[Rfam]
Shown here is a 67-nucleotide RNA sequence from Peribacillus cavernae, a member of the family "Bacillaceae-1 RNA". Rfam classes the family as a small RNA.
RNA sequence: CUAAAAGGAACGUCGAUUAAGAUCCGCCACGUCCUGUGGCAACGUCGGCACCCUGUGCGUCGGGGCU
Numbered sequence: 001c002u003a004a005a006a007g008g009a010a011c012g013u014c015g016a017u018u019a020a021g022a023u024c025c026g027c028c029a030c031g032u033c034c035u036g037u038g039g040c041a042a043c044g045u046c047g048g049c050a051c052c053c054u055g056u057g058c059g060u061c062g063g064g065g066c067u
Base pairs, nucleotide, nucleotide: 012049013048014047015046016045017044026040027039028038029037030036057066058065

A search with the family's covariance model found it, with a score of 50 bits. Taxonomically the source falls in Peribacillus (Bacteria, Bacillati, Caryophanales, Bacillaceae). The family's consensus secondary structure is taken from published work.